[Rfam]
RNA sequence: UGAUGGCUGUUCCUCUCACUACUUUGCACCGUAGGUAGUGGGAUUUCAGUCCAUCAUAGAGCAAGCUGGUCUGUUUUCACUCAGAGCACCAUGCGGAUGGAUUGUCCGUCCGAUAGUGACUCUUGAUUUUUGCAGAGUCAGACAGUU
Numbered sequence: 001u002g003a004u005g006g007c008u009g010u011u012c013c014u015c016u017c018a019c020u021a022c023u024u025u026g027c028a029c030c031g032u033a034g035g036u037a038g039u040g041g042g043a044u045u046u047c048a049g050u051c052c053a054u055c056a057u058a059g060a061g062c063a064a065g066c067u068g069g070u071c072u073g074u075u076u077u078c079a080c081u082c083a084g085a086g087c088a089c090c091a092u093g094c095g096g097a098u099g100g101a102u103u104g105u106c107c108g109u110c111c112g113a114u115a116g117u118g119a120c121u122c123u124u125g126a127u128u129u130u131u132g133c134a135g136a137g138u139c140a141g142a143c144a145g146u147u
Stems, first nucleotide, its partner, number of pairs: 001056006008049001014043005020037004069139001071137002074134001081126003084122003087118003095111005
Rfam assigns this 147-nucleotide RNA sequence from Catagonus wagneri to the family "Small nucleolar RNA SNORA79". Lineage of the source: Eukaryota > Opisthokonta > Eutheria > Artiodactyla > Catagonus. Rfam describes the family as follows. ACA65 (SNORA79) is a member of the H/ACA class of snoRNAs that guide the sites of modification of uridines to pseudouridines. This snoRNA was identified by computational screening and its expression in mouse experimentally verified by Northern blot and primer extension analysis. Rfam 15.1 lists 944 matches to the family in 375 species. Rfam links the family to the GO terms nucleolus and RNA processing.